[Rfam]
A member of the RNA family "epsC RNA" from Halalkalibacter wakoensis, 121 nucleotides long. It is annotated as a cis-regulatory element. It scores 102 bits against the family's covariance model. The source organism's lineage runs through Bacteria, Bacillati, Bacillota, Bacilli and Halalkalibacter wakoensis. Pairs were carried over by alignment from the consensus structure, which is taken from published work.

RNA sequence: UGGCAAUGUCUCCUUGCCUGUAUCGAUGGAGGCACUCGAUCACGCUGUGGGUUCAUGGGAAUAUGAGCCUUAGACGCAUGUUGUCGUCAUUGGUGUGGUGUGAGGAGGGGUUCGAUGCCUC
Numbered sequence: 001u002g003g004c005a006a007u008g009u010c011u012c013c014u015u016g017c018c019u020g021u022a023u024c025g026a027u028g029g030a031g032g033c034a035c036u037c038g039a040u041c042a043c044g045c046u047g048u049g050g051g052u053u054c055a056u057g058g059g060a061a062u063a064u065g066a067g068c069c070u071u072a073g074a075c076g077c078a079u080g081u082u083g084u085c086g087u088c089a090u091u092g093g094u095g096u097g098g099u100g101u102g103a104g105g106a107g108g109g110g111u112u113c114g115a116u117g118c119c120u121c
Stems, first nucleotide, its partner, number of pairs: 002018003007034007035104004039099008049070008073088004107121005